[Rfam]
RNA sequence: GGGAAACUCCCCGGCCCCGCUGUAGAGGGACGUGCAGCGACUGGGCCUGAACGUACAAGGUCCCCA
Numbered sequence: 001g002g003g004a005a006a007c008u009c010c011c012c013g014g015c016c017c018c019g020c021u022g023u024a025g026a027g028g029g030a031c032g033u034g035c036a037g038c039g040a041c042u043g044g045g046c047c048u049g050a051a052c053g054u055a056c057a058a059g060g061u062c063c064c065c066a
Stems, first nucleotide, its partner, number of pairs: 013047005018039005027064005033058001
Description:
Shown here is a 66-nucleotide sequence from Cricetulus griseus, a member of the family "Edr gene ribosomal frameshift signal". A reference for the family is Manktelow et al. (2005), "Characterization of the frameshift signal of Edr, a mammalian example of programmed -1 ribosomal frameshifting", Nucleic Acids Res. By type it is a frameshift element. The family's consensus secondary structure is taken from published work. NCBI's taxonomy places the organism under Eukaryota, Eumetazoa, Euarchontoglires, Glires, Cricetulus.